[Rfam]
Shown here is a 68-nucleotide RNA sequence from Nannospalax galili, a member of the family "Small nucleolar RNA SNORD95". The match comes from Rfam's covariance-model search (86 bits). Its family is annotated with RNA processing and nucleolus in the Gene Ontology. Lineage of the source: Eukaryota > Metazoa > Euarchontoglires > Spalacidae > Nannospalax.

RNA sequence: CAUGAGGUGAUGACCCCAACAUGCCAUCUGAGUUGCACUGCUGAAAUCCAGAGGCAGUUUCUGAGCCU
Numbered sequence: 001c002a003u004g005a006g007g008u009g010a011u012g013a014c015c016c017c018a019a020c021a022u023g024c025c026a027u028c029u030g031a032g033u034u035g036c037a038c039u040g041c042u043g044a045a046a047u048c049c050a051g052a053g054g055c056a057g058u059u060u061c062u063g064a065g066c067c068u
Base pairs, nucleotide, nucleotide: 005068006067007066008065
Overview:
It is annotated as a C/D-box small nucleolar RNA.